RNA sequence: ACGUCUUGCUGAGUUAGUGUUCGGCUUGACGCGAUUGUUAAACACUAAAAUUAAGGUACAUAUUAUGUCUUUAAAUGCUGAACAAAAAGCUGCUAUCGUAGCGGAAUAUGCGACUAAAGAA
Numbered sequence: 001a002c003g004u005c006u007u008g009c010u011g012a013g014u015u016a017g018u019g020u021u022c023g024g025c026u027u028g029a030c031g032c033g034a035u036u037g038u039u040a041a042a043c044a045c046u047a048a049a050a051u052u053a054a055g056g057u058a059c060a061u062a063u064u065a066u067g068u069c070u071u072u073a074a075a076u077g078c079u080g081a082a083c084a085a086a087a088a089g090c091u092g093c094u095a096u097c098g099u100a101g102c103g104g105a106a107u108a109u110g111c112g113a114c115u116a117a118a119g120a121a
Base pairs, nucleotide, nucleotide: 008025009024010023011022012021051074052073053072054071055070056069
RNA: Ribosomal S15 leader